Small nucleolar RNA R16: an 81-nucleotide RNA from Phaseolus vulgaris. The base pairs follow the family's consensus structure, which was predicted with PFOLD. Its family is annotated with RNA processing and nucleolus in the Gene Ontology. The source organism's lineage runs through Eukaryota, Magnoliopsida, eudicotyledons, Papilionoideae and Phaseolus.
RNA sequence: UUUGGCAAGUGAUGAAAAAACUUAUCCUACACACCGAAAAUACUGUGUGGAUUUCAACUCCGCUUAUUAUCUGAUGCCUUU
Numbered sequence: 001u002u003u004g005g006c007a008a009g010u011g012a013u014g015a016a017a018a019a020a021c022u023u024a025u026c027c028u029a030c031a032c033a034c035c036g037a038a039a040a041u042a043c044u045g046u047g048u049g050g051a052u053u054u055c056a057a058c059u060c061c062g063c064u065u066a067u068u069a070u071c072u073g074a075u076g077c078c079u080u081u
Stems, first nucleotide, its partner, number of pairs: 004078004